[Rfam]
RNA sequence: GUUGUGUAUUUCGAAUUACCAAAUAGGUAAUACCAACCGAGUGUAGUCACCACGGUGGUCAAACAAUACGGGAGCUAUCCAAAAUAAACGUUUUUU
Numbered sequence: 001g002u003u004g005u006g007u008a009u010u011u012c013g014a015a016u017u018a019c020c021a022a023a024u025a026g027g028u029a030a031u032a033c034c035a036a037c038c039g040a041g042u043g044u045a046g047u048c049a050c051c052a053c054g055g056u057g058g059u060c061a062a063a064c065a066a067u068a069c070g071g072g073a074g075c076u077a078u079c080c081a082a083a084a085u086a087a088a089c090g091u092u093u094u095u096u
Stems, first nucleotide, its partner, number of pairs: 006069005015031006032059003037055003041050002045091001071080003
The family of this 96-nucleotide sequence from Fermentimonas caenicola is "SAM-I/IV (S-adenosyl methionine) riboswitch aptamer". Its Rfam clan is "SAM clan".